[Rfam]
Nucleotides: 115
Stems, first nucleotide, its partner, number of pairs: 003113006013043005021032003027086003044079004049075002052071004083107001088104002091101001093099001
Number, partner (000 for none) and nucleotide at each position: 001000u002000u003113c004112u005111u006110a007109u008108c009000a010000a011000g012000a013043a014042a015041g016040a017039c018000g019000g020000a021032g022031g023030g024000a025000a026000a027086u028085g029084g030023c031022c032021c033000u034000g035000c036000g037000a038000a039017g040016u041015c042014u043013u044079a045078g046077c047076a048000a049075c050074c051000a052071u053070c054069c055068u056000g057000c058000u059000u060000u061000a062000a063000c064000a065000a066000a067000c068055a069054g070053g071052a072000a073000a074050g075049g076047u077046g078045c079044u080000a081000c082000a083107u084029c085028c086027a087000c088104c089103c090000g091101g092000u093099a094000u095000a096000a097000a098000a099093u100000c101091c102000g103089g104088g105000a106000a107083a108008g109007a110006u111005a112004a113003g114000u115000c